[Rfam]
RNA sequence: GAAAAAUGAUGAUAAUCUUUCUGUCUCCUAUAGUUACAGUGAAGACCUCAGAUCCAACUCUGAUUUCACUCUAUUU
Numbered sequence: 001g002a003a004a005a006a007u008g009a010u011g012a013u014a015a016u017c018u019u020u021c022u023g024u025c026u027c028c029u030a031u032a033g034u035u036a037c038a039g040u041g042a043a044g045a046c047c048u049c050a051g052a053u054c055c056a057a058c059u060c061u062g063a064u065u066u067c068a069c070u071c072u073a074u075u076u
Stems, first nucleotide, its partner, number of pairs: 001067004
The record is a 76-nucleotide sequence from Rhagologus leucostigma, which matches "Small nucleolar RNA SNORD19" in Rfam. By type it is a C/D-box small nucleolar RNA. The family is grouped with related families in Rfam's "SNORD19 clan". The pairing is the family consensus, mapped onto this sequence.